Plastid-psbA-2 3UTR RNA: a 63-nucleotide RNA sequence from Cephalotus follicularis. Rfam's curators write: Plastid psbA-2 is a non-coding RNA (ncRNA) present in plastids. It was identified in inverted repeat sequences in the 3 prime untranslate region (3UTR) of photosystem II quinone-binding protein (psbA). NCBI's taxonomy places the organism under Eukaryota, Embryophyta, Pentapetalae, fabids, Cephalotus. The literature on the family includes a 2023 paper in Plant Commun by Richter et al., "Retrograde signaling in plants: A critical review focusing on the GUN pathway and beyond". The family is grouped with related families in Rfam's "Plastid-psbA 3UTR RNA clan".
RNA sequence: AUUUAGGAGCAAUAACCAAUUUCUUGUUGUAUCAAGAAGGUUGGUUAUUGCUCCUAAAUUUAU
Numbered sequence: 001a002u003u004u005a006g007g008a009g010c011a012a013u014a015a016c017c018a019a020u021u022u023c024u025u026g027u028u029g030u031a032u033c034a035a036g037a038a039g040g041u042u043g044g045u046u047a048u049u050g051c052u053c054c055u056a057a058a059u060u061u062a063u
Stems, first nucleotide, its partner, number of pairs: 001059019022037005
Dot-bracket structure: (((((((((((((((((((..(((((......)))))...)))))))))))))))))))....